[Rfam]
RNA sequence: CGAGUUGGUGGCUAGGGUUCCGGCAUCCCGCGGGAUGUGCUGGUCCGAGAGCUGCCACUGCUCCGGGAGACAUCCGGGGCGGGUGCACGGCGGGAUAAAAGCCCGGGAGAC
Numbered sequence: 001c002g003a004g005u006u007g008g009u010g011g012c013u014a015g016g017g018u019u020c021c022g023g024c025a026u027c028c029c030g031c032g033g034g035a036u037g038u039g040c041u042g043g044u045c046c047g048a049g050a051g052c053u054g055c056c057a058c059u060g061c062u063c064c065g066g067g068a069g070a071c072a073u074c075c076g077g078g079g080c081g082g083g084u085g086c087a088c089g090g091c092g093g094g095a096u097a098a099a100a101g102c103c104c105g106g107g108a109g110a111c
Stems, first nucleotide, its partner, number of pairs: 007056006015046002020043002022040001023038006057084001058082009086106001088109001092104003